[Rfam]
RNA: Burkholderia RNA 7 (anti-hemB)
RNA sequence: UCCCCUGCCUUUCCUCCCUUGGGCAGGGCCUUAUGUGAUAUUAAGGCGGUUCCCCCCGGUUUUUUACUCCCCUUUAACCGGGGGUCUUUUAU
Numbered sequence: 001u002c003c004c005c006u007g008c009c010u011u012u013c014c015u016c017c018c019u020u021g022g023g024c025a026g027g028g029c030c031u032u033a034u035g036u037g038a039u040a041u042u043a044a045g046g047c048g049g050u051u052c053c054c055c056c057c058g059g060u061u062u063u064u065u066a067c068u069c070c071c072c073u074u075u076a077a078c079c080g081g082g083g084g085u086c087u088u089u090u091a092u
Stems, first nucleotide, its partner, number of pairs: 004027006028047006054083008